[Rfam]
RNA: DnaX ribosomal frameshifting element
RNA sequence: UGCAGGGAGCAACCAAAGCAAAAAAGAGUGAACCGGCAGCCGCUACCCGCGCGCGUCCGGUGCCA
Numbered sequence: 001u002g003c004a005g006g007g008a009g010c011a012a013c014c015a016a017a018g019c020a021a022a023a024a025a026g027a028g029u030g031a032a033c034c035g036g037c038a039g040c041c042g043c044u045a046c047c048c049g050c051g052c053g054c055g056u057c058c059g060g061u062g063c064c065a
Stems, first nucleotide, its partner, number of pairs: 032061005039054002041051003